This 116-nucleotide RNA sequence from Miscanthus lutarioriparius belongs to the Rfam family "Small nucleolar RNA Z278". It scores 37 bits against the family's covariance model. snoZ278 is a C/D box small nucleolar RNA. Its methylation guide targets have not been reported. Rfam classes the family as a C/D-box small nucleolar RNA. For this family Rfam cites "The high diversity of snoRNAs in plants: identification and comparative study of 120 snoRNA genes from Oryza sativa" (Chen et al., Nucleic Acids Res, 2003). The source organism's lineage runs through Eukaryota, Mesangiospermae, Liliopsida, commelinids and Miscanthus.
RNA sequence: GCCAAUGAUGAUUAGUCUGCAAAAUGGAUGUCCUGUGGACUCAAGUCCCUGUUUCAGGGAGAACCUACUUGAGGAAACAUGGUACAAAAUAUGACAUCGUUUGAUAAAACUGAGGC
Numbered sequence: 001g002c003c004a005a006u007g008a009u010g011a012u013u014a015g016u017c018u019g020c021a022a023a024a025u026g027g028a029u030g031u032c033c034u035g036u037g038g039a040c041u042c043a044a045g046u047c048c049c050u051g052u053u054u055c056a057g058g059g060a061g062a063a064c065c066u067a068c069u070u071g072a073g074g075a076a077a078c079a080u081g082g083u084a085c086a087a088a089a090u091a092u093g094a095c096a097u098c099g100u101u102u103g104a105u106a107a108a109a110c111u112g113a114g115g116c
Base pairs, nucleotide, nucleotide: 001116002115003114047059048058049057050056051055